The record is an 86-nucleotide RNA sequence from Vanilla planifolia, which matches "Small nucleolar RNA snoR14" in Rfam. Its Rfam clan is "SNORD110 clan". The organism belongs to Vanilla, within Eukaryota. Rfam 15.1 lists 668 matches to the family in 221 species. The literature on the family includes a 2001 paper in RNA by Brown et al., "Multiple snoRNA gene clusters from Arabidopsis". The family's RNA type in Rfam is C/D-box small nucleolar RNA.
[Rfam]
RNA sequence: GCGGGUGAUGAUGAAACUCAUGAUCCGUCAAUCCACCGAUUGAUUAAUUGUGAUGUAUAAUUGAAAUCCUGAUAGGUUCUGAUCGC
Numbered sequence: 001g002c003g004g005g006u007g008a009u010g011a012u013g014a015a016a017c018u019c020a021u022g023a024u025c026c027g028u029c030a031a032u033c034c035a036c037c038g039a040u041u042g043a044u045u046a047a048u049u050g051u052g053a054u055g056u057a058u059a060a061u062u063g064a065a066a067u068c069c070u071g072a073u074a075g076g077u078u079c080u081g082a083u084c085g086c
Base pairs, nucleotide, nucleotide: 001086002085003084004083